The family of this 97-nucleotide RNA sequence from Rosa chinensis is "MIR2275 microRNA precursor family". Its family is annotated with RISC complex and miRNA-mediated post-transcriptional gene silencing in the Gene Ontology. The base pairs follow the family's consensus structure, which was predicted with RNAalifold.
RNA sequence: AAGCUGUAAGUGAGAAUUGGAGAGGACUAAGCAAAUCGAACUCUCAAUGAAGAACUUUUAAUUUGUUUAGUUUUCUCCAAUAUCUCAUUUCCAGCAU
Numbered sequence: 001a002a003g004c005u006g007u008a009a010g011u012g013a014g015a016a017u018u019g020g021a022g023a024g025g026a027c028u029a030a031g032c033a034a035a036u037c038g039a040a041c042u043c044u045c046a047a048u049g050a051a052g053a054a055c056u057u058u059u060a061a062u063u064u065g066u067u068u069a070g071u072u073u074u075c076u077c078c079a080a081u082a083u084c085u086c087a088u089u090u091c092c093a094g095c096a097u
Stems, first nucleotide, its partner, number of pairs: 004094003008090001011087004016081006023074008032065002